[Rfam]
RNA sequence: UCUAGAACUUGAGUAUAGGCUGAACAAUAAACAAUGUUUGGGUUACAGGACAGAUUCUGACUUCUCCGUUGUUACUACAAUUUGAACUUGAAAAUGACCUUUUUGAAUCUUGGACUCCCUUCAAAGUUUUAGGCCUAUGUCUUAGCUUUCUAGC
Dot-bracket structure: .((((((((.((((((((((((((.(.(.....(.(...(((.(..((((..((....(..(........(((...........)))........).)....))...))))..).)))).)...).)))))).)))))).)))))..)))))).
Rfam assigns this 154-nucleotide sequence from Populus tomentosa to the family "MIR2912 microRNA precursor family". Pairs were carried over by alignment from the consensus structure, which was predicted with RNAalifold. Rfam links the family to the GO terms RISC complex and miRNA-mediated post-transcriptional gene silencing. Lineage of the source: Eukaryota > Embryophyta > Mesangiospermae > Salicaceae > Populus. A search with the family's covariance model found it, with a score of 110 bits.